[Rfam]
RNA sequence: UUUUCCGUGAGGAAUGCACUGAAGUAAGUCAAACGGCAAAAGUUGGUACUGACGAACAGAAACUACAUAAGAGGCAUCAUUAAUGGGAUGAGCAAGCACAUCUUUGUGAAGUCCAAAGGCGAUCUAGCUCCACGACUAUGCUGUGGCUUAAUGAUGUAGAUGUAGCAGUGAUCAAUGGAAAGAAGGUGUC
Numbered sequence: 001u002u003u004u005c006c007g008u009g010a011g012g013a014a015u016g017c018a019c020u021g022a023a024g025u026a027a028g029u030c031a032a033a034c035g036g037c038a039a040a041a042g043u044u045g046g047u048a049c050u051g052a053c054g055a056a057c058a059g060a061a062a063c064u065a066c067a068u069a070a071g072a073g074g075c076a077u078c079a080u081u082a083a084u085g086g087g088a089u090g091a092g093c094a095a096g097c098a099c100a101u102c103u104u105u106g107u108g109a110a111g112u113c114c115a116a117a118g119g120c121g122a123u124c125u126a127g128c129u130c131c132a133c134g135a136c137u138a139u140g141c142u143g144u145g146g147c148u149u150a151a152u153g154a155u156g157u158a159g160a161u162g163u164a165g166c167a168g169u170g171a172u173c174a175a176u177g178g179a180a181a182g183a184a185g186g187u188g189u190c
Stems, first nucleotide, its partner, number of pairs: 001016001003014004028190001030188002037182001042176005047170005063165006074157003078153006086114004092107004
RNA: Group II catalytic intron D1-D4-3
Organism: Flammeovirga pacifica